[Rfam]
Annotation: The record is an 89-nucleotide RNA from Ceuthmochares aereus, which matches "Small nucleolar RNA SNORD70" in Rfam. By type it is a C/D-box small nucleolar RNA. A reference for the family is Huttenhofer et al. (2001), "RNomics: an experimental approach that identifies 201 candidates for novel, small, non-messenger RNAs in mouse", EMBO J. It scores 66 bits against the family's covariance model. snoRNA HBII-234 belongs to the C/D family of snoRNAs. It is the human orthologue of the mouse MBII-234 and is predicted to guide 2'O-ribose methylation of the small 18S rRNA on position A512. The base pairs follow the family's consensus structure. The family has 21 seed sequences and 1,085 matches in Rfam 15.1.

RNA sequence: CAGCCUGUUGUCAAUGAUGAAACAUAGUUAAAGCUGAAAUGAAUGAUUUAAUUUAGUUCCUUCGUCACUACCACUGAGACAACAGAUGG
Numbered sequence: 001c002a003g004c005c006u007g008u009u010g011u012c013a014a015u016g017a018u019g020a021a022a023c024a025u026a027g028u029u030a031a032a033g034c035u036g037a038a039a040u041g042a043a044u045g046a047u048u049u050a051a052u053u054u055a056g057u058u059c060c061u062u063c064g065u066c067a068c069u070a071c072c073a074c075u076g077a078g079a080c081a082a083c084a085g086a087u088g089g
Stems, first nucleotide, its partner, number of pairs: 001089001003087001005085008